[Rfam]
RNA sequence: UGGGAGGCAGAUACCUGGGCAGUACUGAGCUGUGCUCUGUCCGUCACUAGCCCUCCCUAUAGCAUACCUGCUCUCUGAUGACCGGGGCGAGUUGAGUGAAAUCGCAACGGACAGAUACGGAGCAGACAAUA
Number, nucleotide and partner (000 for none) at each position: 001u000002g057003g056004g055005a054006g053007g052008c000009a000010g000011a000012u000013a000014c000015c000016u043017g042018g041019g000020c000021a000022g037023u000024a000025c034026u000027g000028a000029g000030c000031u000032g000033u000034g025035c000036u000037c022038u000039g000040u000041c018042c017043g016044u000045c000046a000047c000048u000049a000050g000051c000052c007053c006054u005055c004056c003057c002058u000059a000060u000061a000062g000063c000064a000065u000066a000067c000068c125069u124070g123071c122072u121073c120074u119075c000076u000077g000078a000079u000080g000081a000082c110083c109084g108085g000086g000087g105088c104089g103090a102091g000092u000093u000094g000095a000096g000097u000098g000099a000100a000101a000102u090103c089104g088105c087106a000107a000108c084109g083110g082111a000112c000113a000114g000115a000116u000117a000118c000119g074120g073121a072122g071123c070124a069125g068126a000127c000128a000129a000130u000131a000
This 131-nucleotide RNA sequence from Salvelinus namaycush belongs to the Rfam family "Small Cajal body specific RNA 8".
A search with the family's covariance model found it, with a score of 128 bits.
Its family is annotated with RNA processing, nucleolus and Cajal body in the Gene Ontology.
By type it is a small Cajal body RNA.
About the family: scaRNAs are a specific class of small nuclear RNAs which localise to the Cajal bodies and guide the modification of RNA polymerase II transcribed spliceosomal RNAs U1, U2, U4, U5 and U12. U92 belong to the H/ACA box class of guide RNAs as it has the predicted hairpin-hinge-hairpin-tail structure, conserved H/ACA-box motifs and is found associated with GAR1.